[Rfam]
RNA sequence: ACUUCUGUCCAGCCACAGACAUCGCAAUGGGGGCAGCCGGGCGAGAACCGCGCGGGGUUGAAAUACCAUGA
Numbered sequence: 001a002c003u004u005c006u007g008u009c010c011a012g013c014c015a016c017a018g019a020c021a022u023c024g025c026a027a028u029g030g031g032g033g034c035a036g037c038c039g040g041g042c043g044a045g046a047a048c049c050g051c052g053c054g055g056g057g058u059u060g061a062a063a064u065a066c067c068a069u070g071a
Base pairs, nucleotide, nucleotide: 004068005036006035007034008033009032010031037055038054039053041051042050043049056067057066058065
This 71-nucleotide RNA from Hungateiclostridiaceae bacterium KB18 belongs to the Rfam family "pemK RNA". It scores 40 bits against the family's covariance model. By type it is a cis-regulatory element. The organism belongs to Oscillospiraceae, within Bacteria.